[Rfam]
RNA sequence: GUCGUCAAGUGAUGAGUAUUUCAAAAAUCUUAGGACACCUUUGGACACAGUGUUAACUGUGGAUGAAAAAGAAUUAUUAUUCUGAUGAUGGC
Numbered sequence: 001g002u003c004g005u006c007a008a009g010u011g012a013u014g015a016g017u018a019u020u021u022c023a024a025a026a027a028u029c030u031u032a033g034g035a036c037a038c039c040u041u042u043g044g045a046c047a048c049a050g051u052g053u054u055a056a057c058u059g060u061g062g063a064u065g066a067a068a069a070a071g072a073a074u075u076a077u078u079a080u081u082c083u084g085a086u087g088a089u090g091g092c
Stems, first nucleotide, its partner, number of pairs: 001092007044048001